[Rfam]
Nucleotides: 051
Base pairs, nucleotide, nucleotide: 001036002035003034004033005032007030008029011025012024013023014022015019
Number, partner (000 for none) and nucleotide at each position: 001036c002035g003034u004033g005032u006000g007030g008029u009000g010000u011025c012024c013023g014022g015019c016000a017000a018000a019015g020000c021000a022014c023013c024012g025011g026000a027000u028000a029008g030007c031000g032005a033004c034003a035002c036001g037000g038000c039000c040000u041000g042000a043000u044000a045000u046000u047000g048000a049000g050000g051000u
L31-Gammaproteobacteria ribosomal protein leader: a 51-nucleotide RNA sequence from Vibrio aerogenes. Lineage of the source: Bacteria > Pseudomonadota > Gammaproteobacteria > Vibrio > Vibrio aerogenes. The family is grouped with related families in Rfam's "Ribosomal Protein L31 Leader clan". A search with the family's covariance model found it, with a score of 64 bits.